[Rfam]
RNA sequence: GAAAUAGCUUGAGGGCUAGCCUCAAACGUUGUCCCAGGGAGGUAGAGCACUGAAUGGACUAAGGGCCCUACCAGGUUACUGAACCCAAUCAAACUCCGAAUACCCUGGGUACUAGUUUGGGAGUCAGACUGCGGGGGAUAAGCUCCGUAGUCGAGAGGGAAACAACCCAGACCAUAAGCUAAGGUCCCCAAGUGCAGACUAAGUGGUAAAGGAAGUUGAAUUACCCAGACAGCCAGGAUGUUGGCUCAGAGGCAGCCAUCAUUUAAAAAGUGCGUAACAGCUUACUGGUUAAGUGAUUCUGCACCGAAAAAUGUACGGGGCUAAGUCUGCCACCGAAGCUGUGG
Numbered sequence: 001g002a003a004a005u006a007g008c009u010u011g012a013g014g015g016c017u018a019g020c021c022u023c024a025a026a027c028g029u030u031g032u033c034c035c036a037g038g039g040a041g042g043u044a045g046a047g048c049a050c051u052g053a054a055u056g057g058a059c060u061a062a063g064g065g066c067c068c069u070a071c072c073a074g075g076u077u078a079c080u081g082a083a084c085c086c087a088a089u090c091a092a093a094c095u096c097c098g099a100a101u102a103c104c105c106u107g108g109g110u111a112c113u114a115g116u117u118u119g120g121g122a123g124u125c126a127g128a129c130u131g132c133g134g135g136g137g138a139u140a141a142g143c144u145c146c147g148u149a150g151u152c153g154a155g156a157g158g159g160a161a162a163c164a165a166c167c168c169a170g171a172c173c174a175u176a177a178g179c180u181a182a183g184g185u186c187c188c189c190a191a192g193u194g195c196a197g198a199c200u201a202a203g204u205g206g207u208a209a210a211g212g213a214a215g216u217u218g219a220a221u222u223a224c225c226c227a228g229a230c231a232g233c234c235a236g237g238a239u240g241u242u243g244g245c246u247c248a249g250a251g252g253c254a255g256c257c258a259u260c261a262u263u264u265a266a267a268a269a270g271u272g273c274g275u276a277a278c279a280g281c282u283u284a285c286u287g288g289u290u291a292a293g294u295g296a297u298u299c300u301g302c303a304c305c306g307a308a309a310a311a312u313g314u315a316c317g318g319g320g321c322u323a324a325g326u327c328u329g330c331c332a333c334c335g336a337a338g339c340u341g342u343g344g
Stems, first nucleotide, its partner, number of pairs: 005018005020123001021121007030114001033109007045097001046095002051091003055087003062080002064077004127152010157168003172344004177340003183334003192331001194330006211305002215302002218299007232289005238262003243257003263267001268283001272281002